[Rfam]
RNA: TPP riboswitch aptamer (THI element)
RNA sequence: GGGGGAGUACACGGGAGCCCGACCGGGCUGAGAGUGCGGCGAAGCCGCAGACCGUCUGACCUGAUCCGGGUAAUGCCGGCGAAGGAAGGUGAUGUGACGUGAUGG
Numbered sequence: 001g002g003g004g005g006a007g008u009a010c011a012c013g014g015g016a017g018c019c020c021g022a023c024c025g026g027g028c029u030g031a032g033a034g035u036g037c038g039g040c041g042a043a044g045c046c047g048c049a050g051a052c053c054g055u056c057u058g059a060c061c062u063g064a065u066c067c068g069g070g071u072a073a074u075g076c077c078g079g080c081g082a083a084g085g086a087a088g089g090u091g092a093u094g095u096g097a098c099g100u101g102a103u104g105g
Stems, first nucleotide, its partner, number of pairs: 006093001008091003011055004017028004035049005060085003066079004
Dot-bracket structure: .....(.(((((((..((((....))))......(((((.....)))))..))))....(((...((((......))))...)))...))).)............